[Rfam]
RNA: Retrovirus direct repeat 1 (dr1)
Organism: Rhinopomastus cyanomelas
RNA sequence: UGUAAUGGGGCAAGGCUUGACCGAGAGGACACUGCUUGUAUAGGCGCAACGCGGAGUUUCGGGAUGUACGUGAUUAGGGUCCUCUCAAG
Numbered sequence: 001u002g003u004a005a006u007g008g009g010g011c012a013a014g015g016c017u018u019g020a021c022c023g024a025g026a027g028g029a030c031a032c033u034g035c036u037u038g039u040a041u042a043g044g045c046g047c048a049a050c051g052c053g054g055a056g057u058u059u060c061g062g063g064a065u066g067u068a069c070g071u072g073a074u075u076a077g078g079g080u081c082c083u084c085u086c087a088a089g
Stems, first nucleotide, its partner, number of pairs: 001012003023086008041076003045072002051067003